[Rfam]
Shown here is a 129-nucleotide RNA from Cnephaeus nilssonii, a member of the family "Small Cajal body specific RNA 24". The literature on the family includes a 2002 paper in EMBO J by Darzacq et al., "Cajal body-specific small nuclear RNAs: a novel class of 2'-O-methylation and pseudouridylation guide RNAs". Its Rfam clan is "SCARNA3 clan". It scores 137 bits against the family's covariance model. About the family: scaRNAs are a specific class of small nuclear RNAs which localise to the Cajal bodies and guide the modification of RNA polymerase II transcribed spliceosomal RNAs U1, U2, U4, U5 and U12. ACA12 belongs to the H/ACA box class of guide RNAs as it has the predicted hairpin-hinge-hairpin-tail structure,the conserved H/ACA-box motifs and is found associated with GAR1.
RNA sequence: UGGACAUUUACUUUAGCCAGUUUCUUCUUAAGGUGAAGAAAACUCUUUGUAAAUGUCCUAAAGAAAUAUAGUGGCUUUCUGUUCACCCUUUGCAAGUGGAAAAGGUGGAUCGUUCCUCUACUGACAUAU
Dot-bracket structure: .((((((((((.......(((((((((.......))))).))))....))))))))))..........((((((..............(((........)))...............))))))......